A member of the RNA family "RAGATH-18 RNA", 61 nucleotides long.
The family's consensus secondary structure is taken from published work.
Rfam classes the family as a small RNA.
RNA sequence: CCUUUGGAGAAUUACACCAACCCAAGUAGCUACGGCAAAAGGGAAUUCGUUGAAGAAGGAA
Numbered sequence: 001c002c003u004u005u006g007g008a009g010a011a012u013u014a015c016a017c018c019a020a021c022c023c024a025a026g027u028a029g030c031u032a033c034g035g036c037a038a039a040a041g042g043g044a045a046u047u048c049g050u051u052g053a054a055g056a057a058g059g060a061a
Stems, first nucleotide, its partner, number of pairs: 001059005009048005021043003029036002